[Rfam]
RNA sequence: UAUUAUUGUAAAGCGCCUGGGCUAUGAGGAACGUAAACAACCAUAGCUGACGAGGAGGAGGUUUAUCGAGUUUAAUCGGCGGAUACCUCCCGGUUGUACAUCUCAACCGAUAUGUUUUGAUUCGAAACCGAAAAGGCAACUUUUUGUACAAGAAUAAAAACGAGAUGACCA
Numbered sequence: 001u002a003u004u005a006u007u008g009u010a011a012a013g014c015g016c017c018u019g020g021g022c023u024a025u026g027a028g029g030a031a032c033g034u035a036a037a038c039a040a041c042c043a044u045a046g047c048u049g050a051c052g053a054g055g056a057g058g059a060g061g062u063u064u065a066u067c068g069a070g071u072u073u074a075a076u077c078g079g080c081g082g083a084u085a086c087c088u089c090c091c092g093g094u095u096g097u098a099c100a101u102c103u104c105a106a107c108c109g110a111u112a113u114g115u116u117u118u119g120a121u122u123c124g125a126a127a128c129c130g131a132a133a134a135g136g137c138a139a140c141u142u143u144u145u146g147u148a149c150a151a152g153a154a155u156a157a158a159a160a161c162g163a164g165a166u167g168a169c170c171a
Stems, first nucleotide, its partner, number of pairs: 020048007057090005066079004091109006114161005120155001129146007
Background
Shown here is a 171-nucleotide sequence from Gracilibacillus boraciitolerans, a member of the family "glmS glucosamine-6-phosphate activated ribozyme aptamer". It is annotated as a riboswitch. The family's consensus secondary structure is taken from published work. A search with the family's covariance model found it, with a score of 110 bits. About the family: This entry contains a glucosamine-6-phosphate activated ribozyme that is found in the mRNA for GlmS. GlmS is an enzyme that uses fructose-6-phosphate and glutamine to generate glucosamine-6-phosphate.